A member of the RNA family "tRNA" from Strongylocentrotus purpuratus, 70 nucleotides long. Rfam's curators put it in the seed alignment. The family's consensus secondary structure is taken from published work.
[Rfam]
RNA sequence: GGAGAAGUGGCACGAUAGGAAUGCAUGCGGCUUGAAACCGUUUGAUAGAGGUUUCUUCCUCUCUUCUCUU
Numbered sequence: 001g002g003a004g005a006a007g008u009g010g011c012a013c014g015a016u017a018g019g020a021a022u023g024c025a026u027g028c029g030g031c032u033u034g035a036a037a038c039c040g041u042u043u044g045a046u047a048g049a050g051g052u053u054u055c056u057u058c059c060u061c062u063c064u065u066c067u068c069u070u
Stems, first nucleotide, its partner, number of pairs: 001069007010024003027041004047062005

The family is grouped with related families in Rfam's "tRNA clan". Rfam's curators write: Transfer RNA (tRNA) molecules are approximately 80 nucleotides in length.